The family of this 117-nucleotide sequence from Stenotrophomonas sp. BIIR7 is "ALIL pseudoknot". The family's consensus secondary structure is taken from published work.
RNA sequence: AGCAUAUUUUGCCCAGGCGGAGCUCGACCGCCACUUCAAGCCAUGACGAGGUUCGUGACCGAACACCGUCACGCCUACGGAGUCGAGCCGAUCUGCCGUGUACUUCAGAUCGCUCCG
Numbered sequence: 001a002g003c004a005u006a007u008u009u010u011g012c013c014c015a016g017g018c019g020g021a022g023c024u025c026g027a028c029c030g031c032c033a034c035u036u037c038a039a040g041c042c043a044u045g046a047c048g049a050g051g052u053u054c055g056u057g058a059c060c061g062a063a064c065a066c067c068g069u070c071a072c073g074c075c076u077a078c079g080g081a082g083u084c085g086a087g088c089c090g091a092u093c094u095g096c097c098g099u100g101u102a103c104u105u106c107a108g109a110u111c112g113c114u115c116c117g
Base pairs, nucleotide, nucleotide: 016032017031018030019029020028078117079116080115081114082113089112090111092109093108094107095106098103
Lineage of the source: Bacteria > Pseudomonadati > Gammaproteobacteria > Lysobacteraceae > Stenotrophomonas.